[Rfam]
RNA sequence: UUAAUAGAGCGCUAGGGUUCCGAUUGCAUCUUGCAAUGACUGGUCCGAGAGCACUCAACCUUCCAGUGAAGGUCACACGGCGGGACAAAAGCCCGGGAGAU
Numbered sequence: 001u002u003a004a005u006a007g008a009g010c011g012c013u014a015g016g017g018u019u020c021c022g023a024u025u026g027c028a029u030c031u032u033g034c035a036a037u038g039a040c041u042g043g044u045c046c047g048a049g050a051g052c053a054c055u056c057a058a059c060c061u062u063c064c065a066g067u068g069a070a071g072g073u074c075a076c077a078c079g080g081c082g083g084g085a086c087a088a089a090a091g092c093c094c095g096g097g098a099g100a101u
Base pairs, nucleotide, nucleotide: 007056008055009054011052012051015046016045020043021042022040023037024036025035026034027033028032058073059072060071061070062069063068076096078099082094083093084092